[Rfam]
Rfam assigns this 104-nucleotide sequence from Mobilisporobacter senegalensis to the family "TPP riboswitch aptamer (THI element)". Its family is annotated with thiamine pyrophosphate binding in the Gene Ontology. The source organism's lineage runs through Bacteria, Bacillati, Clostridia, Lachnospiraceae and Mobilisporobacter. The base pairs follow the family's consensus structure, which is taken from published work. The match comes from Rfam's covariance-model search (61 bits).
RNA sequence: UAAAUAUUGUUCGGGAGCUUGUGUGUACAGGCUGAGAGGAAACAAAAGUUUCGACCGUACCUGAUUUGGAUAAUGCCAACGUAGGGAAUUAGAUGAAUGAAUAU
Number, nucleotide and partner (000 for none) at each position: 001u000002a000003a000004a000005u000006a000007u091008u000009g089010u088011u000012c057013g056014g055015g000016a000017g032018c031019u030020u029021g028022u000023g000024u000025g000026u000027a000028c021029a020030g019031g018032c017033u000034g000035a000036g000037a000038g000039g052040a051041a050042a049043c048044a000045a000046a000047a000048g043049u042050u041051u040052c039053g000054a000055c014056c013057g012058u000059a000060c085061c084062u083063g082064a000065u000066u079067u078068g077069g076070a000071u000072a000073a000074u000075g000076c069077c068078a067079a066080c000081g000082u063083a062084g061085g060086g000087a000088a010089u009090u000091a007092g000093a000094u000095g000096a000097a000098u000099g000100a000101a000102u000103a000104u000